[Rfam]
RNA sequence: UGACCCCGUGCGGGAGAGUCCUCCAAGAACCCGCCUCACGGCGGGCGGCGGAAGGCGCCGAAGGAGCAAAUCCUCCCCGGAAUCUCUCAGGCAUCCGUACCGCUCGGGUGAG
Numbered sequence: 001u002g003a004c005c006c007c008g009u010g011c012g013g014g015a016g017a018g019u020c021c022u023c024c025a026a027g028a029a030c031c032c033g034c035c036u037c038a039c040g041g042c043g044g045g046c047g048g049c050g051g052a053a054g055g056c057g058c059c060g061a062a063g064g065a066g067c068a069a070a071u072c073c074u075c076c077c078c079g080g081a082a083u084c085u086c087u088c089a090g091g092c093a094u095c096c097g098u099a100c101c102g103c104u105c106g107g108g109u110g111a112g
Stems, first nucleotide, its partner, number of pairs: 006107003010103004020055003057092003060088002064086003071079001